[Rfam]
Source information
The record is an 80-nucleotide sequence from Cnephaeus nilssonii, which matches "mir-9243 microRNA precursor family" in Rfam. Pairs were carried over by alignment from the consensus structure, which was predicted with RNAalifold. It scores 85 bits against the family's covariance model.
RNA sequence: CCGUGCAUGAAUUUCAUGCACCGGGCCUCUAGUAUUUGUAAUAAAACUAGAGGCCCGGUGCAUGAAAUUUGUGCAUGGGU
Numbered sequence: 001c002c003g004u005g006c007a008u009g010a011a012u013u014u015c016a017u018g019c020a021c022c023g024g025g026c027c028u029c030u031a032g033u034a035u036u037u038g039u040a041a042u043a044a045a046a047c048u049a050g051a052g053g054c055c056c057g058g059u060g061c062a063u064g065a066a067a068u069u070u071g072u073g074c075a076u077g078g079g080u
Stems, first nucleotide, its partner, number of pairs: 001078002004075008013066003017062017035044001